About this RNA: Rfam assigns this 72-nucleotide RNA from Escherichia coli to the family "Nucleoid-associated noncoding RNA 4 (CssrE)". The family's RNA type in Rfam is small RNA. Its family is annotated with protein binding, bacterial nucleoid and bacterial nucleoid DNA packaging in the Gene Ontology. A search with the family's covariance model found it, with a score of 69 bits. On this family, see Qian et al., MBio 2015: "A New Noncoding RNA Arranges Bacterial Chromosome Organization". Pairs were carried over by alignment from the consensus structure, which is taken from published work.
RNA sequence: GGACGGAUAAGGCGUUUUACGCCGCAUCCGGCAUUCAGUGCCUGAUGCGACGCUGACGCGUCUUAUCAGGCC
Numbered sequence: 001g002g003a004c005g006g007a008u009a010a011g012g013c014g015u016u017u018u019a020c021g022c023c024g025c026a027u028c029c030g031g032c033a034u035u036c037a038g039u040g041c042c043u044g045a046u047g048c049g050a051c052g053c054u055g056a057c058g059c060g061u062c063u064u065a066u067c068a069g070g071c072c
Base pairs, nucleotide, nucleotide: 002032004030005029006028007027008026011023012022013021014020040071041070042069043068044067045066046065047064049062050061051060052059053058
Rfam describes the family as follows. In E. coli small RNA transcribed from repeated extragenic palindromic element (REP325) called nucleoid-associated ncRNA 4 (nRNA4) collaborates HU protein in condensing the DNA. The secondary structure but not the sequence of the RNA is important in nucleoid condensation. The source organism's lineage runs through Bacteria, Gammaproteobacteria, Enterobacterales, Enterobacteriaceae and Escherichia coli.